[Rfam]
The family of this 87-nucleotide RNA from Pseudolysinimonas yzui is "ZMP/ZTP riboswitch aptamer (pfl RNA motif)". A search with the family's covariance model found it, with a score of 55 bits. The literature on the family includes a 2015 paper in Structure by Ren et al., "Global RNA Fold and Molecular Recognition for a pfl Riboswitch Bound to ZMP, a Master Regulator of One-Carbon Metabolism".

RNA sequence: UGAGGCGGUCGCAACUGGCGUUCGGAUGGGUCACCAUCGGGGAGCGACGCAGCUUGAGGAGCGCGGCCGUACGCCUGGGCCGCCGCA
Numbered sequence: 001u002g003a004g005g006c007g008g009u010c011g012c013a014a015c016u017g018g019c020g021u022u023c024g025g026a027u028g029g030g031u032c033a034c035c036a037u038c039g040g041g042g043a044g045c046g047a048c049g050c051a052g053c054u055u056g057a058g059g060a061g062c063g064c065g066g067c068c069g070u071a072c073g074c075c076u077g078g079g080c081c082g083c084c085g086c087a
Stems, first nucleotide, its partner, number of pairs: 008048005015041002017075005026037004064082005